RNA: mir-278 microRNA precursor family
Organism: Hermetia illucens
RNA sequence: GGUACGACCGGACGAGGGUCCUCAGCGACCGUUUAUAGUGCGGGUCGGUGGGACUUUCGUCCGUUUGUAAC
Numbered sequence: 001g002g003u004a005c006g007a008c009c010g011g012a013c014g015a016g017g018g019u020c021c022u023c024a025g026c027g028a029c030c031g032u033u034u035a036u037a038g039u040g041c042g043g044g045u046c047g048g049u050g051g052g053a054c055u056u057u058c059g060u061c062c063g064u065u066u067g068u069a070a071c
Stems, first nucleotide, its partner, number of pairs: 003069005009063007017055005023050002026047005